[Rfam]
RNA: Small nucleolar RNA SNORA5
Organism: Fukomys damarensis
RNA sequence: UGCAGCUGUGUCAAAUUCGGUGCCUGCCUCAUGUGGCAGGCACUGGCCCAGAAGGCUGCCACAGAAACACUGUGACUCAUGGGCCCUGCUCCCCUUGCCUGGGCACAGGGAUAAAUUUGGUCACAAACACUG
Dot-bracket structure: .((((............(((((((((((......)))))))))))..........))))............((((((......(((((.................)))))........))))))........